[Rfam]
Description: Rfam assigns this 194-nucleotide RNA sequence to the family "RT-16 RNA".
RNA sequence: CUGUCCCGAGCUGGGCGAGUGCUGCAUAACCUGCAACCAGUUCCCCUCAGGAUGGAGCUACACGUCCUGCCAUCAUGACAUAAGUCAAAGAAAUACUGACAAUGUUAUAAAAUACAGUCGCAACAGCUGGUAACCUUUCUUGGUGAACGUAUGAAGCGACAGUGAUUAUUCAACGGUGUGCAGGACUACAGAGU
Numbered sequence: 001c002u003g004u005c006c007c008g009a010g011c012u013g014g015g016c017g018a019g020u021g022c023u024g025c026a027u028a029a030c031c032u033g034c035a036a037c038c039a040g041u042u043c044c045c046c047u048c049a050g051g052a053u054g055g056a057g058c059u060a061c062a063c064g065u066c067c068u069g070c071c072a073u074c075a076u077g078a079c080a081u082a083a084g085u086c087a088a089a090g091a092a093a094u095a096c097u098g099a100c101a102a103u104g105u106u107a108u109a110a111a112a113u114a115c116a117g118u119c120g121c122a123a124c125a126g127c128u129g130g131u132a133a134c135c136u137u138u139c140u141u142g143g144u145g146a147a148c149g150u151a152u153g154a155a156g157c158g159a160c161a162g163u164g165a166u167u168a169u170u171c172a173a174c175g176g177u178g179u180g181c182a183g184g185a186c187u188a189c190a191g192a193g194u
Stems, first nucleotide, its partner, number of pairs: 001055006008048003013045002064186007071178003084170001087167002117160005124153002126150002133144002

The base pairs follow the family's consensus structure, which is taken from published work. It is annotated as a small RNA.